[Rfam]
RNA: LOOT RNA
RNA sequence: UACCUAACCCUCUAAGUUUGUCUUAGAGGUAUGGUACAAAAAACAUCAACGAUAAAGAUGGUCUUCUGACCGGCACUUCGUCGUUGAUGUCUAUGCUCGAAAGGGUAUAGAGUAGUUCCCGAAAGGGACUAUU
Numbered sequence: 001u002a003c004c005u006a007a008c009c010c011u012c013u014a015a016g017u018u019u020g021u022c023u024u025a026g027a028g029g030u031a032u033g034g035u036a037c038a039a040a041a042a043a044c045a046u047c048a049a050c051g052a053u054a055a056a057g058a059u060g061g062u063c064u065u066c067u068g069a070c071c072g073g074c075a076c077u078u079c080g081u082c083g084u085u086g087a088u089g090u091c092u093a094u095g096c097u098c099g100a101a102a103g104g105g106u107a108u109a110g111a112g113u114a115g116u117u118c119c120c121g122a123a124a125g126g127g128a129c130u131a132u133u
Stems, first nucleotide, its partner, number of pairs: 001036004009029007044089010057074001059072004091110008111133009